[Rfam]
Record summary
The record is a 229-nucleotide part of an RNA from Spiroplasma taiwanense, which matches "Bacterial large subunit ribosomal RNA" in Rfam. Gene Ontology terms of the family: ribosome and structural constituent of ribosome.

RNA sequence: GAGUUACGAUAUCGUGCAAGGUUAAGUGGAAUACACGGAGCCGUAGUGAAAGCGAGCCUUAAUAGGGCGUUUAGUACGAUGUCGUAGACACGAAACCGGGUGAUCUAGCCAUGAGCAGGUUGAAGUUAGGGUAAAACCUAAUGGAGGACCGAACCAACGUUCGUUGAAAAGACCGUGGAUGACUUGUGGCUAGGGGUGAAAUUCCAAUCGAACCCGGAGAUAGCUAGUU
Numbered sequence: 001g002a003g004u005u006a007c008g009a010u011a012u013c014g015u016g017c018a019a020g021g022u023u024a025a026g027u028g029g030a031a032u033a034c035a036c037g038g039a040g041c042c043g044u045a046g047u048g049a050a051a052g053c054g055a056g057c058c059u060u061a062a063u064a065g066g067g068c069g070u071u072u073a074g075u076a077c078g079a080u081g082u083c084g085u086a087g088a089c090a091c092g093a094a095a096c097c098g099g100g101u102g103a104u105c106u107a108g109c110c111a112u113g114a115g116c117a118g119g120u121u122g123a124a125g126u127u128a129g130g131g132u133a134a135a136a137c138c139u140a141a142u143g144g145a146g147g148a149c150c151g152a153a154c155c156a157a158c159g160u161u162c163g164u165u166g167a168a169a170a171g172a173c174c175g176u177g178g179a180u181g182a183c184u185u186g187u188g189g190c191u192a193g194g195g196g197u198g199a200a201a202u203u204c205c206a207a208u209c210g211a212a213c214c215c216g217g218a219g220a221u222a223g224c225u226a227g228u229u
Stems, first nucleotide, its partner, number of pairs: 005086013020042004026036003046053002056068004089227001092224001096217006105193011116181001118150004125142006154178003158175002161172002195205002
NCBI's taxonomy places the organism under Bacteria, Bacillati, Mycoplasmatota, Mollicutes, Spiroplasma taiwanense.